[Rfam]
Overview: The family of this 365-nucleotide sequence from Candidatus Palibaumannia cicadellinicola is "Bacterial RNase P class A". NCBI's taxonomy places the organism under Bacteria, Pseudomonadati, Pseudomonadota, Gammaproteobacteria, Candidatus Palibaumannia cicadellinicola. Pairs were carried over by alignment from the consensus structure, which is taken from published work. The family's RNA type in Rfam is ribozyme. The sequence is in the family's curated seed alignment.
Nucleotides: 365
Base pairs, nucleotide, nucleotide: 002360003359004358005357006356007355008354009353010352012330013329014328015327016326017325018324020049021048023046024045026043027042028041054348055347056346058345059344060343061342062341063235064234065233066232070266071265072264073263075231076230077229078228079227080094081093082092083091084090095109096107097106098105099104110226111225115224116223117220118219132165133164134161135160136159139157140156142154143153173191174190175189176188177187178186192215193213194212195211196210198207199206200205239287240286241285242284250277251276252275253274257271258270259269260268261267294313295312296311297310298309299308300307301306
Number, partner (000 for none) and nucleotide at each position: 001000a002360a003359a004358g005357u006356u007355g008354a009353c010352u011000a012330g013329a014328c015327a016326g017325u018324c019000g020049c021048u022000g023046c024045u025000u026043c027042g028041c029000u030000u031000u032000u033000a034000u035000c036000a037000a038000a039000u040000a041028g042027c043026g044000u045024a046023g047000g048021a049020g050000a051000g052000g053000a054348a055347a056346g057000u058345c059344c060343g061342g062341g063235c064234u065233c066232c067000a068000u069000a070266g071265g072264g073263c074000a075231a076230g077229g078228u079227g080094c081093c082092a083091g084090g085000u086000a087000a088000c089000a090084c091083c092082u093081g094080g095109g096107g097106a098105g099104u100000g101000u102000a103000a104099g105098c106097u107096c108000a109095c110226g111225a112000c113000a114000a115224g116223u117220g118219c119000a120000a121000c122000a123000g124000a125000a126000a127000g128000c129000a130000a131000a132165c133164c134161g135160c136159c137000a138000a139157u140156a141000a142154c143153c144000a145000a146000u147000u148000u149000u150000u151000u152000g153143g154142g155000a156140u157139a158000a159136g160135g161134u162000a163000a164133g165132g166000g167000u168000g169000a170000a171000a172000a173191g174190g175189u176188g177187u178186g179000g180000u181000a182000a183000a184000a185000g186178c187177g188176c189175a190174c191173c192215a193213c194212g195211u196210a197000g198207c199206u200205g201000g202000u203000a204000a205200c206199a207198g208000u209000g210196u211195a212194c213193g214000g215192u216000a217000u218000g219118g220117u221000a222000a223116a224115c225111u226110c227079c228078a229077c230076c231075u232066g233065g234064a235063g236000c237000a238000a239287g240286g241285c242284c243000a244000a245000a246000a247000a248000g249000a250277g251276g252275u253274u254000a255000a256000a257271a258270g259269u260268g261267u262000a263073g264072c265071c266070c267261g268260c269259a270258u271257u272000u273000a274253a275252a276251c277250c278000a279000g280000g281000g282000u283000a284242g285241g286240c287239u288000g289000c290000u291000g292000g293000a294313a295312c296311u297310a298309g299308u300307a301306u302000g303000u304000g305000a306301g307300u308299a309298c310297u311296a312295g313294u314000c315000u316000a317000g318000a319000u320000a321000a322000a323000u324018g325017a326016c327015u328014g329013u330012c331000c332000a333000a334000g335000a336000c337000a338000g339000a340000a341062c342061c343060c344059g345058g346056c347055u348054u349000a350000a351000c352010g353009g354008u355007c356006a357005a358004c359003u360002u361000c362000a363000c364000u365000c